Rfam assigns this 121-nucleotide RNA sequence from Metabacillus litoralis to the family "PyrR binding site". Rfam 15.1 lists 1,498 matches to the family in 930 species. Rfam classes the family as a cis-regulatory element. This family represents the PyrR binding site and terminator structure. This RNA structure is found upstream of a variety of genes involved in pyrimidine biosynthesis and transport. The alignment also includes a portion of the antiterminator structure.
RNA sequence: AGAUCUUUUAAAGAAAGUCCAGAGAGGCUUGGAAGGGUGUAAGGCAAUGUAAGGUAUACCAAUACCUGAAUUUGCUCUACCUUUAAACACUCUGAUGGAUAUGAAUCAGGGUGUUUUUUAC
Number, nucleotide and partner (000 for none) at each position: 001a000002g000003a038004u037005c036006u035007u034008u033009u032010a000011a000012a000013g000014a000015a030016a029017g028018u027019c026020c000021a000022g000023a000024g000025a000026g019027g018028c017029u016030u015031g000032g009033a008034a007035g006036g005037g004038u003039g000040u000041a000042a000043g076044g075045c074046a073047a072048u000049g000050u069051a000052a067053g066054g065055u064056a063057u000058a000059c000060c000061a000062a000063u056064a055065c054066c053067u052068g000069a050070a000071u000072u047073u046074g045075c044076u043077c000078u000079a000080c000081c000082u000083u000084u000085a116086a115087a114088c113089a112090c111091u110092c109093u108094g107095a106096u105097g000098g000099a000100u000101a000102u000103g000104a000105a096106u095107c094108a093109g092110g091111g090112u089113g088114u087115u086116u085117u000118u000119u000120a000121c000
Rfam links the family to the GO terms pyrimidine nucleobase transport and pyrimidine nucleobase biosynthetic process. Taxonomically the source falls in Metabacillus (Bacteria, Bacillati, Caryophanales, Bacillaceae).